[Rfam]
RNA sequence: UGAGGGUUCAAAGCUACAGCAGAAGCAUUCACAGCGCAGCCAUGUCAUUUUCCACUGAAUCUGUGAAUUCUGCU
Numbered sequence: 001u002g003a004g005g006g007u008u009c010a011a012a013g014c015u016a017c018a019g020c021a022g023a024a025g026c027a028u029u030c031a032c033a034g035c036g037c038a039g040c041c042a043u044g045u046c047a048u049u050u051u052c053c054a055c056u057g058a059a060u061c062u063g064u065g066a067a068u069u070c071u072g073c074u
Stems, first nucleotide, its partner, number of pairs: 013040003018074007025037002046063002050059003
The family of this 74-nucleotide RNA sequence from Crocodylus porosus is "Mammalian CPEB3 ribozyme". The base pairs follow the family's consensus structure, which is taken from published work. NCBI's taxonomy places the organism under Eukaryota, Eumetazoa, Bilateria, Sarcopterygii, Crocodylus. From the family's description: The mammalian CPEB3 ribozyme is a self cleaving RNA located in the second intron of the CPEB3 gene which belongs to a family of genes regulating messenger RNA polyadenylation.